Annotation
A member of the RNA family "Small nucleolar RNA U2-19" from Sagittarius serpentarius, 79 nucleotides long. Pairs were carried over by alignment from the consensus structure, which is taken from published work. It is annotated as a C/D-box small nucleolar RNA. NCBI's taxonomy places the organism under Eukaryota, Craniata, Tetrapoda, Neoaves, Sagittarius. Gene Ontology terms of the family: RNA processing and nucleolus.
[Rfam]
RNA sequence: GGUCUGUGAUGAGAAAUAGCCAAAUCUGACCACCGGAAGACAAUCUUCUAGGUGUCAUGAUUUGUAUGCAGUUCUGAGA
Numbered sequence: 001g002g003u004c005u006g007u008g009a010u011g012a013g014a015a016a017u018a019g020c021c022a023a024a025u026c027u028g029a030c031c032a033c034c035g036g037a038a039g040a041c042a043a044u045c046u047u048c049u050a051g052g053u054g055u056c057a058u059g060a061u062u063u064g065u066a067u068g069c070a071g072u073u074c075u076g077a078g079a
Stems, first nucleotide, its partner, number of pairs: 031054004038046003